[Rfam]
RNA sequence: UGUAUAUUAAAAGCGCCAGAACUUGACUAGCGCGGGAUGUAAGAUGGACCGAGGGUAUGGAUGAGUACGAUCCGUUUCGGUGCCUGAUUACAACGGCAGAUCAAGUUGACGAGGUGGGGGUGUUCGAAAUGUUCGGCGGGGACCUCCCGGUGAUGCACCAGAGCCGUGAAUCAUAUACGGAAAAUAAGCGGGCGACUGCUCAUACAACGUAGUGAUGGGUGCUAAUUA
Numbered sequence: 001u002g003u004a005u006a007u008u009a010a011a012a013g014c015g016c017c018a019g020a021a022c023u024u025g026a027c028u029a030g031c032g033c034g035g036g037a038u039g040u041a042a043g044a045u046g047g048a049c050c051g052a053g054g055g056u057a058u059g060g061a062u063g064a065g066u067a068c069g070a071u072c073c074g075u076u077u078c079g080g081u082g083c084c085u086g087a088u089u090a091c092a093a094c095g096g097c098a099g100a101u102c103a104a105g106u107u108g109a110c111g112a113g114g115u116g117g118g119g120g121u122g123u124u125c126g127a128a129a130u131g132u133u134c135g136g137c138g139g140g141g142a143c144c145u146c147c148c149g150g151u152g153a154u155g156c157a158c159c160a161g162a163g164c165c166g167u168g169a170a171u172c173a174u175a176u177a178c179g180g181a182a183a184a185u186a187a188g189c190g191g192g193c194g195a196c197u198g199c200u201c202a203u204a205c206a207a208c209g210u211a212g213u214g215a216u217g218g219g220u221g222c223u224a225a226u227u228a
Base pairs, nucleotide, nucleotide: 020107021106022105023104024103025102026101116147117146118145119144120143124136125135126134127133148166149165150164151163152159171218172217173216174215175213176212185202187200188199189198190197191196